[Rfam]
RNA sequence: CUAGGGUACCCACCAUGGGGCCUUGGGAGGAUCAGAAGGUCUCCCACAUUGGAGACCAGACAUCCCUGUUUAAUAUUUAAACAGCAGUGUUCCCC
Numbered sequence: 001c002u003a004g005g006g007u008a009c010c011c012a013c014c015a016u017g018g019g020g021c022c023u024u025g026g027g028a029g030g031a032u033c034a035g036a037a038g039g040u041c042u043c044c045c046a047c048a049u050u051g052g053a054g055a056c057c058a059g060a061c062a063u064c065c066c067u068g069u070u071u072a073a074u075a076u077u078u079a080a081a082c083a084g085c086a087g088u089g090u091u092c093c094c095c
Stems, first nucleotide, its partner, number of pairs: 003024005009019003032060002039056006066084008
Dot-bracket structure: ..(((((.(((.....)))))))).......((.....((((((......))))))..)).....((((((((...))))))))...........
G-CSF factor stem-loop destabilising element (SLDE): a 95-nucleotide RNA sequence from Otolemur garnettii. Rfam describes the family as follows. This family represents the granulocyte colony-stimulating factor stem-loop destabilising element (G-CSF SLDE). G-CSF is secreted by fibroblasts and endothelial cells in response to the inflammatory mediators interleukin-1 (IL-1) and tumour necrosis factor alpha and by activated macrophages. The synthesis of G-CSF is regulated both transcriptionally and through control of mRNA stability. In unstimulated cells G-CSF mRNA is unstable but becomes stabilised in response to IL-1 or tumour necrosis factor alpha, and also in the case of monocytes and macrophages, in response to lipopolysaccharide. Its family is annotated with nuclear-transcribed mRNA poly(A) tail shortening in the Gene Ontology. For this family Rfam cites "RNA destabilization by the granulocyte colony-stimulating factor stem-loop destabilizing element involves a single stem-loop that promotes deadenylation" (Putland et al., Mol Cell Biol, 2002). The family's RNA type in Rfam is cis-regulatory element. The sequence is in the family's curated seed alignment.